Rfam assigns this 304-nucleotide sequence from Sphenodon punctatus to the family "Small Cajal body-specific RNA 7". By type it is a small Cajal body RNA. It scores 180 bits against the family's covariance model. On this family, see Darzacq et al., EMBO J 2002: "Cajal body-specific small nuclear RNAs: a novel class of 2'-O-methylation and pseudouridylation guide RNAs". Its family is annotated with RNA processing and nucleolus in the Gene Ontology. Rfam 15.1 lists 570 matches to the family in 531 species. Lineage of the source: Eukaryota > Craniata > Amniota > Sauria > Sphenodon.
RNA sequence: UGGAAGUGAUGAAAUAGAGGUCACUGGGUGUUGGUGUGAAUGGUGUAUGACUGGGAACUGUUAAUUUAUUAAACUUUUAAUACUUUAAUGUUUGUGUCUGUGAGAGUGAUAUACAAAGGCUGCAGGCUGGGGGCCCUGAUAUGAAGUGCUGACUUCAGAGUGCAUCUGAGGCAUGUUGGAAUUUGAGGGGUUUUCUGCAACAUUGCCAAUGAUUAGACCCCCAAAUAAGCUUACCGGUUGAGCCUUGACAUCCUGAAUCUCUAACAGGUUCAUUAUGUAUAAAUGAAUCUGUGAUCUGAUCCAA
Numbered sequence: 001u002g003g004a005a006g007u008g009a010u011g012a013a014a015u016a017g018a019g020g021u022c023a024c025u026g027g028g029u030g031u032u033g034g035u036g037u038g039a040a041u042g043g044u045g046u047a048u049g050a051c052u053g054g055g056a057a058c059u060g061u062u063a064a065u066u067u068a069u070u071a072a073a074c075u076u077u078u079a080a081u082a083c084u085u086u087a088a089u090g091u092u093u094g095u096g097u098c099u100g101u102g103a104g105a106g107u108g109a110u111a112u113a114c115a116a117a118g119g120c121u122g123c124a125g126g127c128u129g130g131g132g133g134c135c136c137u138g139a140u141a142u143g144a145a146g147u148g149c150u151g152a153c154u155u156c157a158g159a160g161u162g163c164a165u166c167u168g169a170g171g172c173a174u175g176u177u178g179g180a181a182u183u184u185g186a187g188g189g190g191u192u193u194u195c196u197g198c199a200a201c202a203u204u205g206c207c208a209a210u211g212a213u214u215a216g217a218c219c220c221c222c223a224a225a226u227a228a229g230c231u232u233a234c235c236g237g238u239u240g241a242g243c244c245u246u247g248a249c250a251u252c253c254u255g256a257a258u259c260u261c262u263a264a265c266a267g268g269u270u271c272a273u274u275a276u277g278u279a280u281a282a283a284u285g286a287a288u289c290u291g292u293g294a295u296c297u298g299a300u301c302c303a304a
Stems, first nucleotide, its partner, number of pairs: 001303004174202005179194003183190002